Description
c-di-AMP riboswitch aptamer (ydaO/yuaA leader): a 157-nucleotide RNA sequence from Streptomyces sp. NRRL F-5122. The literature on the family includes a 2004 paper in Proc Natl Acad Sci U S A by Barrick et al., "New RNA motifs suggest an expanded scope for riboswitches in bacterial genetic control". A search with the family's covariance model found it, with a score of 91 bits. Its family is annotated with cyclic-di-AMP binding and regulation of gene expression in the Gene Ontology.

[Rfam]
RNA sequence: CGUGCGCGUGUGCCGAAUCCCGCAAGGGAGCCGGGGAACCACCACCUUGGGGUGAAUCGGGCGGAGACCGCCGUGGAAGCACGGUCGGUAUACGCGCGUAGGAGACCUUCCUCUCCGAACCCGUCAGCUAACCCGGUAGGCGAGACGGAAGGAAAGG
Numbered sequence: 001c002g003u004g005c006g007c008g009u010g011u012g013c014c015g016a017a018u019c020c021c022g023c024a025a026g027g028g029a030g031c032c033g034g035g036g037a038a039c040c041a042c043c044a045c046c047u048u049g050g051g052g053u054g055a056a057u058c059g060g061g062c063g064g065a066g067a068c069c070g071c072c073g074u075g076g077a078a079g080c081a082c083g084g085u086c087g088g089u090a091u092a093c094g095c096g097c098g099u100a101g102g103a104g105a106c107c108u109u110c111c112u113c114u115c116c117g118a119a120c121c122c123g124u125c126a127g128c129u130a131a132c133c134c135g136g137u138a139g140g141c142g143a144g145a146c147g148g149a150a151g152g153a154a155a156g157g
Base pairs, nucleotide, nucleotide: 011142012141013140014139018029019028020027030137031136032135033134034133035132040049041048050122051121052120058098059097061095062094063093101116102115103114104113
Dot-bracket structure: ..........((((...(((......)))((((((....((......))(((.....((.(((.............................))).))..((((........))))...))).........)))))).))))...............